[Rfam]
Annotation: Rfam assigns this 56-nucleotide RNA from Thermococcus barophilus to the family "Small nucleolar RNA sR34". Rfam links the family to the GO terms RNA processing and nucleolus. For this family Rfam cites "A guided tour: small RNA function in Archaea" (Dennis et al., Mol Microbiol, 2001).
RNA sequence: GCCAAUGAUGAUCGUUAGCCACUCUGAAUUGAUGAAGAAAAGAGGGUUAGCUGAGG
Numbered sequence: 001g002c003c004a005a006u007g008a009u010g011a012u013c014g015u016u017a018g019c020c021a022c023u024c025u026g027a028a029u030u031g032a033u034g035a036a037g038a039a040a041a042g043a044g045g046g047u048u049a050g051c052u053g054a055g056g
Base pairs, nucleotide, nucleotide: 014051015050016049017048018047019046020045024042025041